[Rfam]
RNA sequence: AGCUUUUCGAAUCCAUGCAGAGAUUUCGUCAGACACCAACCCAUUUCGGCUGAUCGGACUUCCAGGAUAAGUGAAGUG
Numbered sequence: 001a002g003c004u005u006u007u008c009g010a011a012u013c014c015a016u017g018c019a020g021a022g023a024u025u026u027c028g029u030c031a032g033a034c035a036c037c038a039a040c041c042c043a044u045u046u047c048g049g050c051u052g053a054u055c056g057g058a059c060u061u062c063c064a065g066g067a068u069a070a071g072u073g074a075a076g077u078g
Base pairs, nucleotide, nucleotide: 002077003076004075005074006073008071011068012067013066016064017063020061021060022059024058025057026056028054029053030052
Annotation: The record is a 78-nucleotide sequence from Schistosoma curassoni, which matches "mir-3492 microRNA precursor family" in Rfam. Its family is annotated with RISC complex and miRNA-mediated post-transcriptional gene silencing in the Gene Ontology. The family's consensus secondary structure was predicted with RNAalifold. NCBI's taxonomy places the organism under Eukaryota, Eumetazoa, Trematoda, Schistosomatidae, Schistosoma. It scores 48 bits against the family's covariance model.